Background:
MIR6152 microRNA precursor family: a 93-nucleotide sequence from Nicotiana sylvestris. It scores 84 bits against the family's covariance model.
RNA sequence: CAGAUGGAUAGAUUCGACUGUAUUCACGGCAUGAAAUAGAGGAUUACACUGUUUUUAAAAUGGAAAGUGAAUCAAUUAACAUAAUAGACUCUU
Numbered sequence: 001c002a003g004a005u006g007g008a009u010a011g012a013u014u015c016g017a018c019u020g021u022a023u024u025c026a027c028g029g030c031a032u033g034a035a036a037u038a039g040a041g042g043a044u045u046a047c048a049c050u051g052u053u054u055u056u057a058a059a060a061u062g063g064a065a066a067g068u069g070a071a072u073c074a075a076u077u078a079a080c081a082u083a084a085u086a087g088a089c090u091c092u093u
Stems, first nucleotide, its partner, number of pairs: 005087001007085001009083002013079002016077002019074002022072006030062003033055007
Dot-bracket structure: ....(.(.((..((.((.((.((((((..((((((((((.........)))))))....)))....)))))))).))))..)).).)......